[Rfam]
RNA sequence: CCCCCGCACCAUGGAAGGCCAAACAUGGUGCAUGAAGGGAAAG
Numbered sequence: 001c002c003c004c005c006g007c008a009c010c011a012u013g014g015a016a017g018g019c020c021a022a023a024c025a026u027g028g029u030g031c032a033u034g035a036a037g038g039g040a041a042a043g
Base pairs, nucleotide, nucleotide: 002039003038004037006031007030008029009028010027011026012025013024

This 43-nucleotide sequence from Plasmid pCN3 belongs to the Rfam family "Tick-borne Flavivirus short stem-loop SL6".
The family's consensus secondary structure was predicted with LocARNA.